[Rfam]
RNA sequence: AGCACCCGCGUGGGAGAGACCGCCUGGCGGCAGCCGGGCGGCGCCGAAGGGGCAAAUCCUCCCCGGAACCUCUCAGGCAGAAGGACCGCGUGGGUCAG
Numbered sequence: 001a002g003c004a005c006c007c008g009c010g011u012g013g014g015a016g017a018g019a020c021c022g023c024c025u026g027g028c029g030g031c032a033g034c035c036g037g038g039c040g041g042c043g044c045c046g047a048a049g050g051g052g053c054a055a056a057u058c059c060u061c062c063c064c065g066g067a068a069c070c071u072c073u074c075a076g077g078c079a080g081a082a083g084g085a086c087c088g089c090g091u092g093g094g095u096c097a098g
Stems, first nucleotide, its partner, number of pairs: 006093008020041008043078003046074002050072003057065001